[Rfam]
RNA sequence: GGAUGUCCCGCAAUGGCACUGCAUGAAUUCACGGUUGAGAUCCGGGCCGUGCAUCCAUCGGUUCCAUACCGGGUUCGUCGCCA
Numbered sequence: 001g002g003a004u005g006u007c008c009c010g011c012a013a014u015g016g017c018a019c020u021g022c023a024u025g026a027a028u029u030c031a032c033g034g035u036u037g038a039g040a041u042c043c044g045g046g047c048c049g050u051g052c053a054u055c056c057a058u059c060g061g062u063u064c065c066a067u068a069c070c071g072g073g074u075u076c077g078u079c080g081c082c083a
Stems, first nucleotide, its partner, number of pairs: 007073004013067004018062004025055002028053001030051001032049003036044002
mir-228 microRNA precursor family: an 83-nucleotide RNA from Ancylostoma duodenale. Rfam 15.1 lists 30 matches to the family in 27 species. It scores 56 bits against the family's covariance model.